[Rfam]
Nucleotides: 076
Stems, first nucleotide, its partner, number of pairs: 005071005012064008023054001027050007
Number, partner (000 for none) and nucleotide at each position: 001000g002000g003000u004000a005071g006070u007069u008068c009067a010000a011000u012064c013063u014062g015061g016060g017059u018058g019057u020000u021000u022000c023054u024000c025000u026000g027050a028049g029048u030047c031046a032045u033044a034000c035000a036000c037000a038000a039000c040000g041000u042000g043000a044033u045032a046031u047030g048029a049028c050027u051000a052000g053000a054023g055000a056000c057019a058018c059017a060016u061015u062014c063013a064012g065000c066000u067009u068008g069007g070006a071005u072000g073000u074000g075000u076000g